The family of this 114-nucleotide sequence from Pseudozyma flocculosa is "tRNA". Rfam links the family to the GO term triplet codon-amino acid adaptor activity. About the family: Transfer RNA (tRNA) molecules are approximately 80 nucleotides in length. A search with the family's covariance model found it, with a score of 49 bits. The organism belongs to Pseudozyma, within Eukaryota.
[Rfam]
Nucleotides: 114
Base pairs, nucleotide, nucleotide: 001113002112003111004110005109006108007107010024011023012022013021026084027083028082029081030080031079032078090106091105092104093103094102
Number, partner (000 for none) and nucleotide at each position: 001113g002112g003111g004110g005109g006108u007107u008000u009000a010024g011023a012022u013021c014000a015000g016000c017000g018000g019000u020000a021013g022012a023011u024010c025000g026084u027083u028082g029081c030080u031079u032078u033000c034000g035000c036000a037000u038000g039000c040000u041000c042000a043000a044000g045000c046000u047000u048000g049000u050000g051000c052000u053000u054000c055000c056000u057000u058000c059000g060000c061000a062000u063000g064000a065000a066000g067000g068000u069000g070000c071000c072000u073000g074000c075000u076000g077000a078032g079031a080030g081029g082028c083027a084026a085000a086000g087000g088000u089000c090106g091105u092104g093103g094102g095000u096000u097000c098000a099000a100000u101000c102094c103093c104092c105091a106090c107007a108006g109005u110004c111003u112002c113001c114000a